[Rfam]
RNA: Small nucleolar RNA R32/R81/Z41
RNA sequence: GGAUGAAUAUGAUGAAAGUUAUGAUGCAUGGUGAUCGCCUCGAUGUGAUGAAGAUGUUUUCGCUACGUUCUUUCUGAUUCAUAU
Numbered sequence: 001g002g003a004u005g006a007a008u009a010u011g012a013u014g015a016a017a018g019u020u021a022u023g024a025u026g027c028a029u030g031g032u033g034a035u036c037g038c039c040u041c042g043a044u045g046u047g048a049u050g051a052a053g054a055u056g057u058u059u060u061c062g063c064u065a066c067g068u069u070c071u072u073u074c075u076g077a078u079u080c081a082u083a084u
Stems, first nucleotide, its partner, number of pairs: 004081004